[Rfam]
Rfam assigns this 319-nucleotide RNA from Arenibacter certesii to the family "Bacterial RNase P class A". Lineage of the source: Bacteria > Pseudomonadati > Flavobacteriia > Flavobacteriales > Arenibacter.
RNA sequence: UCAGCAGGUCGCCUUAUCGCUGUUUCCAAUCUUUUUGGGUCAGAGGAAAGUCCGGACACCAUAGUGCAGUAUAGCGGGUAACGCCCGUCCGUCGAGAGGCGAGGACAAGUGCAACAGAGAGAAGGUACAGGUAAUGCUGUAGUGAAAGCAGGUAAACUCUAUACGGUGCAACGCCAUGUAAAUCAGUGUUCGAGGGCUGCACGCUCAAGCUGAAGGGUAGGCGGUUAGAGUUGUUGAGCAAUCAAUAACCUAGAUAAAUGAUAAGGAAGUCCAUAAUUAAUUAUGGGCUACAGAAUCCGGCUUAUGACCUGCUUUUUUU
Number, nucleotide and partner (000 for none) at each position: 001u000002c000003a313004g312005c311006a310007g309008g308009u307010c306011g305012c266013c265014u264015u263016a262017u261018c260019g000020c043021u042022g041023u000024u039025u038026c037027c000028a035029a000030u000031c000032u000033u000034u000035u028036u000037g026038g025039g024040u000041c022042a021043g020044a000045g000046g000047a000048a303049a302050g301051u000052c300053c299054g298055g297056a296057c168058a167059c166060c165061a000062u000063a000064g202065u201066g200067c199068a000069g164070u163071a162072u161073a160074g088075c087076g086077g085078g084079u000080a000081a000082c000083g000084c078085c077086c076087g075088u074089c103090c101091g100092u099093c098094g000095a000096g000097a000098g093099g092100c091101g090102a000103g089104g159105a158106c000107a000108a000109g157110u156111g153112c152113a000114a000115c000116a000117g000118a000119g000120a000121g000122a000123a000124g000125g000126u141127a140128c139129a138130g137131g000132u000133a000134a000135u000136g000137c130138u129139g128140u127141a126142g000143u000144g000145a000146a000147a000148g000149c000150a000151g000152g112153u111154a000155a000156a110157c109158u105159c104160u073161a072162u071163a070164c069165g060166g059167u058168g057169c000170a000171a000172c223173g222174c221175c220176a000177u000178g000179u000180a000181a000182a000183u213184c212185a211186g210187u209188g000189u000190u000191c000192g000193a000194g206195g205196g204197c203198u000199g067200c066201a065202c064203g197204c196205u195206c194207a000208a000209g187210c186211u185212g184213a183214a000215g000216g000217g000218u000219a000220g175221g174222c173223g172224g000225u000226u000227a000228g000229a000230g249231u248232u247233g246234u245235u244236g243237a242238g000239c000240a000241a000242u237243c236244a235245a234246u233247a232248a231249c230250c000251u000252a000253g000254a000255u000256a000257a000258a000259u000260g018261a017262u016263a015264a014265g013266g012267a000268a000269g000270u000271c000272c000273a000274u000275a000276a000277u000278u000279a000280a000281u000282u000283a000284u000285g000286g000287g000288c000289u000290a000291c000292a000293g000294a000295a000296u056297c055298c054299g053300g052301c050302u049303u048304a000305u011306g010307a009308c008309c007310u006311g005312c004313u003314u000315u000316u000317u000318u000319u000